[Rfam]
RNA sequence: ACUUGUAUAAGUCAACAUAAAGGGUUGAUGUAUCUACAGUGAAACCUAUUUCGCUACUAUAAGU
Number, nucleotide and partner (000 for none) at each position: 001a064002c063003u062004u061005g060006u059007a058008u036009a000010a000011g029012u028013c027014a026015a025016c024017a000018u000019a000020a000021a000022g046023g045024g016025u015026u014027g013028a012029u011030g037031u000032a000033u000034c000035u000036a008037c030038a055039g054040u053041g052042a051043a050044a049045c023046c022047u000048a000049u044050u043051u042052c041053g040054c039055u038056a000057c000058u007059a006060u005061a004062a003063g002064u001
Rfam assigns this 64-nucleotide RNA sequence from Spiroplasma culicicola to the family "2dG-I riboswitch aptamer (M. florum)". On this family, see Kim et al., Proc Natl Acad Sci U S A 2007: "Guanine riboswitch variants from Mesoplasma florum selectively recognize 2'-deoxyguanosine". The family's consensus secondary structure is taken from published work.